RNA sequence: CCUGAAUGAAGUUCGAUUAAGAUCGCCACCUCCUGUGGCAACAUCGAACAGGGCU
Numbered sequence: 001c002c003u004g005a006a007u008g009a010a011g012u013u014c015g016a017u018u019a020a021g022a023u024c025g026c027c028a029c030c031u032c033c034u035g036u037g038g039c040a041a042c043a044u045c046g047a048a049c050a051g052g053g054c055u
Base pairs, nucleotide, nucleotide: 011049012048013047014046015045016044017043025039026038027037028036029035